This 99-nucleotide sequence from Sugiyamaella lignohabitans belongs to the Rfam family "tRNA". The organism belongs to Sugiyamaella, within Eukaryota. Its family is annotated with triplet codon-amino acid adaptor activity in the Gene Ontology. Pairs were carried over by alignment from the consensus structure, which is taken from published work.

Nucleotides: 099
Base pairs, nucleotide, nucleotide: 001098002097003096004095005094006093007092010025011024012023013022027069028068029067030066075091076090077089078088079087
Number, partner (000 for none) and nucleotide at each position: 001098g002097c003096u004095c005094c006093g007092u008000u009000g010025g011024c012023u013022c014000a015000g016000u017000u018000g019000g020000u021000a022013g023012a024011g025010c026000g027069u028068g029067g030066g031000u032000c033000u034000c035000a036000u037000a038000g039000a040000a041000u042000g043000a044000u045000u046000a047000c048000u049000c050000u051000a052000c053000a054000a055000g056000a057000g058000u059000a060000a061000g062000u063000a064000a065000u066030c067029c068028c069027a070000a071000g072000a073000u074000c075091g076090c077089c078088a079087g080000u081000u082000c083000g084000a085000g086000c087079c088078u089077g090076g091075c092007a093006c094005g095004g096003a097002g098001c099000a